[Rfam]
RNA: mir-310 microRNA precursor family
Organism: Drosophila navojoa
RNA sequence: UCGUUUUCCGGCUGUGAAUUGUGUCAAUUCUUUUUAUUUUACAAGUAUUGCACUUUUCACGGCCGGAAAAAGG
Number, nucleotide and partner (000 for none) at each position: 001u073002c072003g000004u070005u069006u068007u067008c000009c000010g064011g063012c000013u061014g060015u000016g058017a057018a000019u000020u000021g053022u000023g051024u000025c050026a049027a048028u047029u000030c045031u044032u000033u000034u000035u000036a000037u000038u000039u000040u000041a000042c000043a000044a031045g030046u000047a028048u027049u026050g025051c023052a000053c021054u000055u000056u000057u017058c016059a000060c014061g013062g000063c011064c010065g000066g000067a007068a006069a005070a004071a000072g002073g001